[Rfam]
RNA sequence: UUAAAUGAUAGAGGUGCAGUGAAUUAAGAGUAAUUACCCCGAGCAGGCCAGGCUAUGACGGGUAAUGAAAGGAAUCAUUGCCGAAGCAUAGGGUCAAGGAUAAAGGACCUUUUGCUGGUCUUCCAUUGAAAAAAUGUAAGACUGUCACCGGAAUCUCGGUGGAGUGCUAUCUCGUGA
Numbered sequence: 001u002u003a004a005a006u007g008a009u010a011g012a013g014g015u016g017c018a019g020u021g022a023a024u025u026a027a028g029a030g031u032a033a034u035u036a037c038c039c040c041g042a043g044c045a046g047g048c049c050a051g052g053c054u055a056u057g058a059c060g061g062g063u064a065a066u067g068a069a070a071g072g073a074a075u076c077a078u079u080g081c082c083g084a085a086g087c088a089u090a091g092g093g094u095c096a097a098g099g100a101u102a103a104a105g106g107a108c109c110u111u112u113u114g115c116u117g118g119u120c121u122u123c124c125a126u127u128g129a130a131a132a133a134a135u136g137u138a139a140g141a142c143u144g145u146c147a148c149c150g151g152a153a154u155c156u157c158g159g160u161g162g163a164g165u166g167c168u169a170u171c172u173c174g175u176g177a
Stems, first nucleotide, its partner, number of pairs: 007171005016081006023075003033066007085116004090111006117143006124136004145162007
Rfam assigns this 177-nucleotide sequence from Desulfitobacterium dichloroeliminans to the family "Lysine riboswitch aptamer". A search with the family's covariance model found it, with a score of 124 bits. NCBI's taxonomy places the organism under Bacteria, Eubacteriales, Desulfitobacteriaceae, Desulfitobacterium, Desulfitobacterium dichloroeliminans. Rfam describes the family as follows. Riboswitches are metabolite binding domains within certain messenger RNAs that serve as precision sensors for their corresponding targets.